[Rfam]
RNA sequence: GACCCCGGAGGUCAACGUCCGCCAGCGCGUCGCGCCCGCGGGCGCUGAACGU
Numbered sequence: 001g002a003c004c005c006c007g008g009a010g011g012u013c014a015a016c017g018u019c020c021g022c023c024a025g026c027g028c029g030u031c032g033c034g035c036c037c038g039c040g041g042g043c044g045c046u047g048a049a050c051g052u
Stems, first nucleotide, its partner, number of pairs: 016044007025035004
RNA: ffh sRNA